[Rfam]
RNA sequence: AACGGUCUUCAGGGCGGGGUGUAAGUCCCCACCGGCGGUAAUCACAGAGAAGUGCGAGCCCGCGAGCCGAAAGGCAGGAUUCCGGUGAGAUUCCGGAGCCGACGGUAUAGUCCGGAUGGUAGAAGAUGUUU
Numbered sequence: 001a002a003c004g005g006u007c008u009u010c011a012g013g014g015c016g017g018g019g020u021g022u023a024a025g026u027c028c029c030c031a032c033c034g035g036c037g038g039u040a041a042u043c044a045c046a047g048a049g050a051a052g053u054g055c056g057a058g059c060c061c062g063c064g065a066g067c068c069g070a071a072a073g074g075c076a077g078g079a080u081u082c083c084g085g086u087g088a089g090a091u092u093c094c095g096g097a098g099c100c101g102a103c104g105g106u107a108u109a110g111u112c113c114g115g116a117u118g119g120u121a122g123a124a125g126a127u128g129u130u131u
Stems, first nucleotide, its partner, number of pairs: 005127006017029003031111002033101002035063004058099002066075003081097005103114003
RNA: FMN riboswitch aptamer (RFN element)